RNA sequence: AGCAGCGAUGAUGUAACACUCCAUUGGUCCGUGUUUCUGAACCACAUGACUCUUCCUGAUGUUCUGAUGCU
Numbered sequence: 001a002g003c004a005g006c007g008a009u010g011a012u013g014u015a016a017c018a019c020u021c022c023a024u025u026g027g028u029c030c031g032u033g034u035u036u037c038u039g040a041a042c043c044a045c046a047u048g049a050c051u052c053u054u055c056c057u058g059a060u061g062u063u064c065u066g067a068u069g070c071u
Base pairs, nucleotide, nucleotide: 001071002070003069004068
RNA: Small nucleolar RNA SNORD18
Organism: Suricata suricatta